Shown here is a 62-nucleotide RNA from Romboutsia maritimum, a member of the family "RAGATH-18 RNA". Taxonomically the source falls in Romboutsia (Bacteria, Bacillati, Bacillota, Clostridia). Actinobacteria, Firmicutes, Fusobacteria, Thermotogae (1 example).
[Rfam]
RNA sequence: UUUGUAAAGAACUAUACCAAAUCGUAGUAGCUUAGGCAAGGCGAGGUUCUGUGAAGCAGAAA
Numbered sequence: 001u002u003u004g005u006a007a008a009g010a011a012c013u014a015u016a017c018c019a020a021a022u023c024g025u026a027g028u029a030g031c032u033u034a035g036g037c038a039a040g041g042c043g044a045g046g047u048u049c050u051g052u053g054a055a056g057c058a059g060a061a062a
Stems, first nucleotide, its partner, number of pairs: 001060005009049005022044003030037002